Source information: Shown here is a 135-nucleotide sequence from Ovis aries, a member of the family "Small Cajal body specific RNA 11". Rfam links the family to the GO terms nucleolus, Cajal body and RNA processing. Rfam 15.1 lists 853 matches to the family in 557 species. Pairs were carried over by alignment from the consensus structure, which was predicted with RNAalifold. The family's RNA type in Rfam is small Cajal body RNA. The organism belongs to Ovis, within Eukaryota. The literature on the family includes a 2002 paper in EMBO J by Darzacq et al., "Cajal body-specific small nuclear RNAs: a novel class of 2'-O-methylation and pseudouridylation guide RNAs".
[Rfam]
RNA sequence: AGGUCUCUUAUAAAGCUAUAACUUAGGUGAGGUAUAAAGAUAUAACUCUGAAGUCUGGCAGGACAUGCAGCAAUCUCCCACUCAGGAGGUCUGCCCUAAGAAUAGGGCUAACUCUUGAAGGCAAAAGGGGAUAAU
Numbered sequence: 001a002g003g004u005c006u007c008u009u010a011u012a013a014a015g016c017u018a019u020a021a022c023u024u025a026g027g028u029g030a031g032g033u034a035u036a037a038a039g040a041u042a043u044a045a046c047u048c049u050g051a052a053g054u055c056u057g058g059c060a061g062g063a064c065a066u067g068c069a070g071c072a073a074u075c076u077c078c079c080a081c082u083c084a085g086g087a088g089g090u091c092u093g094c095c096c097u098a099a100g101a102a103u104a105g106g107g108c109u110a111a112c113u114c115u116u117g118a119a120g121g122c123a124a125a126a127g128g129g130g131a132u133a134a135u
Base pairs, nucleotide, nucleotide: 003064004063005062006061007058008057021054022053023052028050029049031047032046033045078130079129081127082126085122086116087115088114089113092110093108094107095106096105097104098103